[Rfam]
RNA sequence: CUAAAAGUGUUCUGCUAGUGAGCCUAUUCCGCUAACGGUAAGGAAUAGCGUCUUGCAGAGACCGUCAAAUUGCGGGGAACUCCUUAGAGCCUUUGCUACCGCCAUUGUGCUGAAAAGUAUAGUGGCACCAGGGUAAUGACCUCGGGUAUGGUAAUAACGCAAAGGAUUGGACAAUCCGCAGCCAAGUCCUAAAGGUAGUAAACGACCUAUGGAUGCAGUUCAACGACUAGAUGGCGGUCGGUUUCAAGUCAGUAAAACGGCUUGAGGCUUAAGAUAGAGUCUAACCCUCCAGAGAUGGAGCC
Numbered sequence: 001c002u003a004a005a006a007g008u009g010u011u012c013u014g015c016u017a018g019u020g021a022g023c024c025u026a027u028u029c030c031g032c033u034a035a036c037g038g039u040a041a042g043g044a045a046u047a048g049c050g051u052c053u054u055g056c057a058g059a060g061a062c063c064g065u066c067a068a069a070u071u072g073c074g075g076g077g078a079a080c081u082c083c084u085u086a087g088a089g090c091c092u093u094u095g096c097u098a099c100c101g102c103c104a105u106u107g108u109g110c111u112g113a114a115a116a117g118u119a120u121a122g123u124g125g126c127a128c129c130a131g132g133g134u135a136a137u138g139a140c141c142u143c144g145g146g147u148a149u150g151g152u153a154a155u156a157a158c159g160c161a162a163a164g165g166a167u168u169g170g171a172c173a174a175u176c177c178g179c180a181g182c183c184a185a186g187u188c189c190u191a192a193a194g195g196u197a198g199u200a201a202a203c204g205a206c207c208u209a210u211g212g213a214u215g216c217a218g219u220u221c222a223a224c225g226a227c228u229a230g231a232u233g234g235c236g237g238u239c240g241g242u243u244u245c246a247a248g249u250c251a252g253u254a255a256a257a258c259g260g261c262u263u264g265a266g267g268c269u270u271a272a273g274a275u276a277g278a279g280u281c282u283a284a285c286c287c288u289c290c291a292g293a294g295a296u297g298g299a300g301c302c
Stems, first nucleotide, its partner, number of pairs: 060239005066233002071180006081171003181219002186214004194207003198203001223282001225281004241268009287300005